A member of the RNA family "Glycine riboswitch aptamer" from Curvibacter sp. AEP1-3, 101 nucleotides long.
Rfam links the family to the GO term glycine biosynthetic process.
NCBI's taxonomy places the organism under Bacteria, Pseudomonadati, Burkholderiales, Comamonadaceae, Curvibacter.
It scores 56 bits against the family's covariance model.
RNA sequence: CCACAACGUUCAGGAGAGAGCCCUUUUUCGGGGCCGCCGAAGGCGCAGGACGGCUGAUUGCAGCGGUCUGAACGCUCAGGCAAAAGGACUGAUCCCUGCCG
Dot-bracket structure: .......(.((((......((((.......)))).(((((..(((...((................))....))))).))).......)))).).......
Numbered sequence: 001c002c003a004c005a006a007c008g009u010u011c012a013g014g015a016g017a018g019a020g021c022c023c024u025u026u027u028u029c030g031g032g033g034c035c036g037c038c039g040a041a042g043g044c045g046c047a048g049g050a051c052g053g054c055u056g057a058u059u060g061c062a063g064c065g066g067u068c069u070g071a072a073c074g075c076u077c078a079g080g081c082a083a084a085a086g087g088a089c090u091g092a093u094c095c096c097u098g099c100c101g
Stems, first nucleotide, its partner, number of pairs: 008094001010092004020034004036081003039077002043075003049068002